RNA sequence: UCCAGAUACGGUGAUAUGGUGCCCUCGACGAUAAUGGGGAAAGUAGUGGGAGGAAUCUGCUCUCUCUCGGGGGUCCUCGUCAUCGCACUUCCCGUUCCAGUCAUCGUCUCCAAC
Dot-bracket structure: (...(..((((.(((..((.((..............((((........(((.........)))..........))))................))))..))).))))..)..).
RNA: Potassium channel RNA editing signal
Organism: Hydatigera taeniaeformis